[Rfam]
RNA sequence: AGAUAAUAAAGGCAAACUUACUGAAAAGUUAGGACGCAAAGCCUAGGAUCUACGGCUUCCUAGUCAUUAACGACUAGGGGCUACGAUGGCCUGGUUACCAAU
Numbered sequence: 001a002g003a004u005a006a007u008a009a010a011g012g013c014a015a016a017c018u019u020a021c022u023g024a025a026a027a028g029u030u031a032g033g034a035c036g037c038a039a040a041g042c043c044u045a046g047g048a049u050c051u052a053c054g055g056c057u058u059c060c061u062a063g064u065c066a067u068u069a070a071c072g073a074c075u076a077g078g079g080g081c082u083a084c085g086a087u088g089g090c091c092u093g094g095u096u097a098c099c100a101a102u
Stems, first nucleotide, its partner, number of pairs: 012037002017032002020029003040096004045092003048087003055081004
Dot-bracket structure: ...........((...((.(((....))).))...))..((((.((((((....((((...................))))...)))..)))))))......